[Rfam]
RNA sequence: UGAUGACAAAACUCCGGAAUCUCUGUAUUCCUUUGAUGAAACCUUGAACCCUUUUUCUGAUGACUGCUCUUCAAAAACAUU
Numbered sequence: 001u002g003a004u005g006a007c008a009a010a011a012c013u014c015c016g017g018a019a020u021c022u023c024u025g026u027a028u029u030c031c032u033u034u035g036a037u038g039a040a041a042c043c044u045u046g047a048a049c050c051c052u053u054u055u056u057c058u059g060a061u062g063a064c065u066g067c068u069c070u071u072c073a074a075a076a077a078c079a080u081u
Stems, first nucleotide, its partner, number of pairs: 002081004

Shown here is an 81-nucleotide sequence from Amphiprion percula, a member of the family "Small nucleolar RNA MBII-202". The literature on the family includes a 2001 paper in EMBO J by Huttenhofer et al., "RNomics: an experimental approach that identifies 201 candidates for novel, small, non-messenger RNAs in mouse". The base pairs follow the family's consensus structure, which was predicted with PFOLD. Taxonomically the source falls in Amphiprion (Eukaryota, Actinopterygii, Neoteleostei, Eurypterygia). Rfam 15.1 lists 745 matches to the family in 452 species. The match comes from Rfam's covariance-model search (62 bits).